[Rfam]
Small nucleolar RNA SNORA69: a 127-nucleotide RNA sequence from Cicer arietinum. A search with the family's covariance model found it, with a score of 50 bits. NCBI's taxonomy places the organism under Eukaryota, Euphyllophyta, Mesangiospermae, Papilionoideae, Cicer.
RNA sequence: UAUGGGUGGGCAUUUUACAGCGCUUUUUUGAGAAAGCGCUGUAAUAUGCACACCCAUAUAUGAAAUUAUGGGUGGGCAUAUUACAACGCUUUUGUGAGAAAGCGUUGUAAUAUGCCCACCCAUAAUU
Numbered sequence: 001u002a003u004g005g006g007u008g009g010g011c012a013u014u015u016u017a018c019a020g021c022g023c024u025u026u027u028u029u030g031a032g033a034a035a036g037c038g039c040u041g042u043a044a045u046a047u048g049c050a051c052a053c054c055c056a057u058a059u060a061u062g063a064a065a066u067u068a069u070g071g072g073u074g075g076g077c078a079u080a081u082u083a084c085a086a087c088g089c090u091u092u093u094g095u096g097a098g099a100a101a102g103c104g105u106u107g108u109a110a111u112a113u114g115c116c117c118a119c120c121c122a123u124a125a126u127u
Stems, first nucleotide, its partner, number of pairs: 002057006018041009068123011084107009